[Rfam]
RNA sequence: GUGUAAUGAUGCAACAUAUUUGAAAGCUCUGAUAUCUGAUGUUUUCAAAGGAACCACUGAUUCAC
Numbered sequence: 001g002u003g004u005a006a007u008g009a010u011g012c013a014a015c016a017u018a019u020u021u022g023a024a025a026g027c028u029c030u031g032a033u034a035u036c037u038g039a040u041g042u043u044u045u046c047a048a049a050g051g052a053a054c055c056a057c058u059g060a061u062u063c064a065c
Stems, first nucleotide, its partner, number of pairs: 001065003005061001
RNA: Small nucleolar RNA SNORD42
Organism: Electrophorus electricus